[Rfam]
RNA: sul1 RNA
Organism: Stappia sediminis
Nucleotides: 056
Stems, first nucleotide, its partner, number of pairs: 007023005031051006
Number, partner (000 for none) and nucleotide at each position: 001000u002000c003000c004000g005000g006000u007023c008022c009021c010020g011019g012000u013000g014000a015000a016000a017000u018000u019011c020010c021009g022008g023007g024000u025000g026000g027000c028000u029000a030000u031051u032050c033049c034048g035047g036046c037000c038000g039000c040000u041000u042000a043000u044000c045000c046036g047035c048034c049033g050032g051031a052000a053000a054000c055000c056000c